[Rfam]
RNA sequence: ACGUGACUUAGUUAGGAGGCACAUAUUAAUCUGAAUCAAAUUCAUUUUUGGUUCAAUUAUAGAGAAAGACAUUUUGAAAAGACAUUCUUUUUUUCUCAAAUCAAUUGUCCUUCAACUAGUCUUUCACAUUU
Dot-bracket structure: ...((.(((......))).))............(((((..........)))))..........(((((((...(((.((.((((.(.................).)))).)))))...)))))))......
RNA: Small nucleolar RNA U19
Organism: Lupinus albus